RNA sequence: UCAUGCCCUCCGCCUCUACUCCAUUUUCAUAGGGCGGGGGAGCGGUCAAAAAGGAGGAAAAAGCCGCCGGGCCGGCGGUGCGGCAGUGUGGAGACCUGCCGUAAAGCCCGGGGAGUUUCGCUCUCCCCGGACGAGAGGGUACUUGCGGAGGCAUUGCCCUUACGGCCCACGCAUAUGGCA
Numbered sequence: 001u002c003a004u005g006c007c008c009u010c011c012g013c014c015u016c017u018a019c020u021c022c023a024u025u026u027u028c029a030u031a032g033g034g035c036g037g038g039g040g041a042g043c044g045g046u047c048a049a050a051a052a053g054g055a056g057g058a059a060a061a062a063g064c065c066g067c068c069g070g071g072c073c074g075g076c077g078g079u080g081c082g083g084c085a086g087u088g089u090g091g092a093g094a095c096c097u098g099c100c101g102u103a104a105a106g107c108c109c110g111g112g113g114a115g116u117u118u119c120g121c122u123c124u125c126c127c128c129g130g131a132c133g134a135g136a137g138g139g140u141a142c143u144u145g146c147g148g149a150g151g152c153a154u155u156g157c158c159c160u161u162a163c164g165g166c167c168c169a170c171g172c173a174u175a176u177g178g179c180a
Stems, first nucleotide, its partner, number of pairs: 008040004014034005064078004069168006079103008088095002106132001108130007135161007144153003
The family of this 180-nucleotide sequence from Pseudoflavonifractor sp. An184 is "malK-I RNA".
The family's RNA type in Rfam is cis-regulatory element.
The source organism's lineage runs through Bacteria, Bacillota, Eubacteriales, Oscillospiraceae and Pseudoflavonifractor.